This 65-nucleotide sequence from Musa balbisiana belongs to the Rfam family "Plastid-clpP 5UTR RNA". It scores 59 bits against the family's covariance model. Rfam classes the family as a cis-regulatory element. The base pairs follow the family's consensus structure, which was predicted with LocARNA. About the family: Plastid clpP is a non-coding RNA (ncRNA) recognised in plastids. It was found in the prime untranslated region (5UTR) of a protease complex subunit (clpP) in plastids, suggesting a posible cis-regulatory function. On this family, see Richter et al., Plant Commun 2023: "Retrograde signaling in plants: A critical review focusing on the GUN pathway and beyond". NCBI's taxonomy places the organism under Eukaryota, Viridiplantae, Embryophyta, Spermatophyta, Musa.

[Rfam]
RNA sequence: AAUUCUGUCGUAAGAACAAAGAGAACAAUCUAUUCUAUACCCGAUAAGUACCAAUCCCAAUGGGA
Numbered sequence: 001a002a003u004u005c006u007g008u009c010g011u012a013a014g015a016a017c018a019a020a021g022a023g024a025a026c027a028a029u030c031u032a033u034u035c036u037a038u039a040c041c042c043g044a045u046a047a048g049u050a051c052c053a054a055u056c057c058c059a060a061u062g063g064g065a
Base pairs, nucleotide, nucleotide: 003021004020006018007017008016009014040064041063042062048057050055